Hepatitis B virus post-transcriptional regulatory element 1151-1410: a 265-nucleotide RNA sequence from Tai Forest hepadnavirus. Gene Ontology terms of the family: regulation of RNA splicing and nuclear export. Part of 500 base pair long HBV PRE, contains nucleotides 1151-1410. Enhances nuclear export of intronless transcripts and represses the splicing mechanism to a comparable degree to that of the full-length PRE. It was proposed to be the core HBV PRE element. contains 3 known regulatory elements: PRE SL-alpha (nucleotides 1292-1321), human La protein binding site (nucleotide 1275-1291) and SRE-1 (nucleotides 1252-1348). Rfam classes the family as a cis-regulatory element.

RNA sequence: UUGCUAGGCAACGCAGCCGACUUUGCCAGGUGUUUGCUGAUGCAACCCCCACUGGCUGGGGCCUGGUUAAUUAUUCAACGGACUCUGUCCGUUUGGGAACCUUCUCCCAACCACUUCCGAUUCACUGUGCUGAAUUGCUGUCCGCCUGCUUCGCCCGCUGCUGGACAGGGGCGUCGCUUCUCGGCGUCGACAACCAAGUGGUCGCCUCGGGUAAAUACACCCAUUACCCAUGGCUGCUCGGCUGCGCUGCCGCCUGGAUCCUUCG
Numbered sequence: 001u002u003g004c005u006a007g008g009c010a011a012c013g014c015a016g017c018c019g020a021c022u023u024u025g026c027c028a029g030g031u032g033u034u035u036g037c038u039g040a041u042g043c044a045a046c047c048c049c050c051a052c053u054g055g056c057u058g059g060g061g062c063c064u065g066g067u068u069a070a071u072u073a074u075u076c077a078a079c080g081g082a083c084u085c086u087g088u089c090c091g092u093u094u095g096g097g098a099a100c101c102u103u104c105u106c107c108c109a110a111c112c113a114c115u116u117c118c119g120a121u122u123c124a125c126u127g128u129g130c131u132g133a134a135u136u137g138c139u140g141u142c143c144g145c146c147u148g149c150u151u152c153g154c155c156c157g158c159u160g161c162u163g164g165a166c167a168g169g170g171g172c173g174u175c176g177c178u179u180c181u182c183g184g185c186g187u188c189g190a191c192a193a194c195c196a197a198g199u200g201g202u203c204g205c206c207u208c209g210g211g212u213a214a215a216u217a218c219a220c221c222c223a224u225u226a227c228c229c230a231u232g233g234c235u236g237c238u239c240g241g242c243u244g245c246g247c248u249g250c251c252g253c254c255u256g257g258a259u260c261c262u263u264c265g
Stems, first nucleotide, its partner, number of pairs: 001045004005040001007038005016031002019026001049097002051092002055088002059085001061083001062081002064077003068073001109116001119260006129250002132247001135244001138240001140238001142236001144234003148177002152173005158168003183206003188201001190199002209229006